[Rfam]
Rfam assigns this 258-nucleotide sequence from Loigolactobacillus backii to the family "T-box leader". Uncharged tRNA acts as the effector for transcription antitermination of genes in the T-box leader family. A search with the family's covariance model found it, with a score of 97 bits. The base pairs follow the family's consensus structure, which is taken from published work.
RNA sequence: UAAAACACCGUGAUGGGGAGAGUAGCAACUACUUAUUUUUCAAGCGAGCUUCGAUUAGUGCAAGGAAGUAAAAGUAGGUAAUUGUGAAAGUAGCCUCGGAGUGGCGGAUGCGACGUUUAUGAAGUGUCCGUUGGGAGCGCCCAUUAUUGCGCCAACGUCUUGAAAAAGUAUUUUAAUGCUUUCUCAGCACGGGGUAAGGCUAUUACUGCGAAGUAAUAGUAAAUUUAAGGUGGUAACACGCAAUUCAGCGUCCUUUAA
Numbered sequence: 001u002a003a004a005a006c007a008c009c010g011u012g013a014u015g016g017g018g019a020g021a022g023u024a025g026c027a028a029c030u031a032c033u034u035a036u037u038u039u040u041c042a043a044g045c046g047a048g049c050u051u052c053g054a055u056u057a058g059u060g061c062a063a064g065g066a067a068g069u070a071a072a073a074g075u076a077g078g079u080a081a082u083u084g085u086g087a088a089a090g091u092a093g094c095c096u097c098g099g100a101g102u103g104g105c106g107g108a109u110g111c112g113a114c115g116u117u118u119a120u121g122a123a124g125u126g127u128c129c130g131u132u133g134g135g136a137g138c139g140c141c142c143a144u145u146a147u148u149g150c151g152c153c154a155a156c157g158u159c160u161u162g163a164a165a166a167a168g169u170a171u172u173u174u175a176a177u178g179c180u181u182u183c184u185c186a187g188c189a190c191g192g193g194g195u196a197a198g199g200c201u202a203u204u205a206c207u208g209c210g211a212a213g214u215a216a217u218a219g220u221a222a223a224u225u226u227a228a229g230g231u232g233g234u235a236a237c238a239c240g241c242a243a244u245u246c247a248g249c250g251u252c253c254u255u256u257a258a
Stems, first nucleotide, its partner, number of pairs: 007102002015097004025085004030080001037072003048069005105130007132143003199220007227255004238251004